[Rfam]
RNA sequence: CACGGCGGCAGGACUUAGCCCACAUGUGAACACUGUAUGUUGAUCUCCAUGUUCACAGUGGUUAAGUUCUGCCGCACUU
Numbered sequence: 001c002a003c004g005g006c007g008g009c010a011g012g013a014c015u016u017a018g019c020c021c022a023c024a025u026g027u028g029a030a031c032a033c034u035g036u037a038u039g040u041u042g043a044u045c046u047c048c049a050u051g052u053u054c055a056c057a058g059u060g061g062u063u064a065a066g067u068u069c070u071g072c073c074g075c076a077c078u079u
Base pairs, nucleotide, nucleotide: 011069012068013067014066015065016064017063018062019061020060026056027055028054029053030052031051032050
The family of this 79-nucleotide RNA from Esox lucius is "mir-27 microRNA precursor family". Rfam links the family to the GO terms RISC complex and miRNA-mediated post-transcriptional gene silencing. On this family, see Chen et al., Genes Dev 2005: "The developmental miRNA profiles of zebrafish as determined by small RNA cloning". Taxonomically the source falls in Esox (Eukaryota, Bilateria, Deuterostomia, Esocidae). The match comes from Rfam's covariance-model search (68 bits).